[Rfam]
RNA sequence: AUGAGACCGUAUGACUGGCGGAAAGUGGGAGUACCCACAGGGAGUACGGGAAUCGAAUUAUGCCGACCGCCUGGGCAAUGGAC
Numbered sequence: 001a002u003g004a005g006a007c008c009g010u011a012u013g014a015c016u017g018g019c020g021g022a023a024a025g026u027g028g029g030a031g032u033a034c035c036c037a038c039a040g041g042g043a044g045u046a047c048g049g050g051a052a053u054c055g056a057a058u059u060a061u062g063c064c065g066a067c068c069g070c071c072u073g074g075g076c077a078a079u080g081g082a083c
Base pairs, nucleotide, nucleotide: 003053007049008048009047010046011045012044015041016040017071018070019069020068021067025038026037027036028035061077062076063075064074